[Rfam]
RNA sequence: GUUGCUUCUUACUUGUGAACUCUCUCUGUUUAUUUGACAAAACAAGAAGUGGGGGAUGUUCAUGUUUCUGAAGCAUAGAUGUAUUGUUCGCCAGCAUUAAACAGCUCGGUGCAUCGCACAAAUGUGUUUUGUUGCACUGUGCUACCUGUCUUCUGGUAAAUUU
Numbered sequence: 001g002u003u004g005c006u007u008c009u010u011a012c013u014u015g016u017g018a019a020c021u022c023u024c025u026c027u028g029u030u031u032a033u034u035u036g037a038c039a040a041a042a043c044a045a046g047a048a049g050u051g052g053g054g055g056a057u058g059u060u061c062a063u064g065u066u067u068c069u070g071a072a073g074c075a076u077a078g079a080u081g082u083a084u085u086g087u088u089c090g091c092c093a094g095c096a097u098u099a100a101a102c103a104g105c106u107c108g109g110u111g112c113a114u115c116g117c118a119c120a121a122a123u124g125u126g127u128u129u130u131g132u133u134g135c136a137c138u139g140u141g142c143u144a145c146c147u148g149u150c151u152u153c154u155g156g157u158a159a160a161u162u163u
Stems, first nucleotide, its partner, number of pairs: 003075006016062005021056005090157005096151001103143003107139007
RNA: small nucleolar RNA snoR137
Organism: Rhododendron simsii